RNA sequence: GCUGGGUUUGGUAGCGUGAGCCUGUAACCCAAGUGGGAGCAUUAAAAUGGUGGGAUGGGAUGAUUGGCCUUGCCUUUGAAGGUGGGCUUUUGGGGUGCUAUUUACCGGCCUCUGCCCGUUCCAAGUGGUGAGUUGGGACGUGGAGUCUCUGUGUAGGCAGAGGCUUCUUUGGCCCUUAGACCGGAGGGUAUUGCGUCAGGCUGGUUUCACAGAGCAGCAAACACCUCCUCUUCUCUGUAGUGGAAGGAUAACAGGCCGGAGCUUCUUCAGUCCACUAAGCCUGAUGGGUUGUCCAAUUGAACCACCAUCUUU
Numbered sequence: 001g002c003u004g005g006g007u008u009u010g011g012u013a014g015c016g017u018g019a020g021c022c023u024g025u026a027a028c029c030c031a032a033g034u035g036g037g038a039g040c041a042u043u044a045a046a047a048u049g050g051u052g053g054g055a056u057g058g059g060a061u062g063a064u065u066g067g068c069c070u071u072g073c074c075u076u077u078g079a080a081g082g083u084g085g086g087c088u089u090u091u092g093g094g095g096u097g098c099u100a101u102u103u104a105c106c107g108g109c110c111u112c113u114g115c116c117c118g119u120u121c122c123a124a125g126u127g128g129u130g131a132g133u134u135g136g137g138a139c140g141u142g143g144a145g146u147c148u149c150u151g152u153g154u155a156g157g158c159a160g161a162g163g164c165u166u167c168u169u170u171g172g173c174c175c176u177u178a179g180a181c182c183g184g185a186g187g188g189u190a191u192u193g194c195g196u197c198a199g200g201c202u203g204g205u206u207u208c209a210c211a212g213a214g215c216a217g218c219a220a221a222c223a224c225c226u227c228c229u230c231u232u233c234u235c236u237g238u239a240g241u242g243g244a245a246g247g248a249u250a251a252c253a254g255g256c257c258g259g260a261g262c263u264u265c266u267u268c269a270g271u272c273c274a275c276u277a278a279g280c281c282u283g284a285u286g287g288g289u290u291g292u293c294c295a296a297u298u299g300a301a302c303c304a305c306c307a308u309c310u311u312u
Stems, first nucleotide, its partner, number of pairs: 001040003004023007028037003044311002047308007061299005066293003071288001073287002076284001080282004084273005093265001095264001097262001099261001105259007114252001116247002119245005125238004130233003135175003139171002142167011183228005192221001195218002201212003
Plant signal recognition particle RNA: a 312-nucleotide sequence from Ipomoea nil. The literature on the family includes a 2003 paper in Nucleic Acids Res by Rosenblad et al., "SRPDB: Signal Recognition Particle Database". It scores 193 bits against the family's covariance model.